This 72-nucleotide RNA from Waltiozyma pijperi belongs to the Rfam family "tRNA". It is annotated as a transfer RNA. Rfam's curators put it in the seed alignment. Rfam's curators write: Transfer RNA (tRNA) molecules are approximately 80 nucleotides in length. Their secondary structure includes four short double-helical elements and three loops (D, anti-codon, and T loops). The family's consensus secondary structure is taken from published work. The source organism's lineage runs through Eukaryota, Opisthokonta, Dikarya, Wickerhamomycetaceae and Waltiozyma.
RNA sequence: UGCAUUAUGAUGUAAUUGGUAACAUACAAGGCUCAUGUCCUUUUUAUAUACGUUCAAAUCGUGUUGAUGCAU
Numbered sequence: 001u002g003c004a005u006u007a008u009g010a011u012g013u014a015a016u017u018g019g020u021a022a023c024a025u026a027c028a029a030g031g032c033u034c035a036u037g038u039c040c041u042u043u044u045u046a047u048a049u050a051c052g053u054u055c056a057a058a059u060c061g062u063g064u065u066g067a068u069g070c071a072u
Base pairs, nucleotide, nucleotide: 001071002070003069004068005067006066007065010025011024012023013022028042029041030040031039048064049063050062051061052060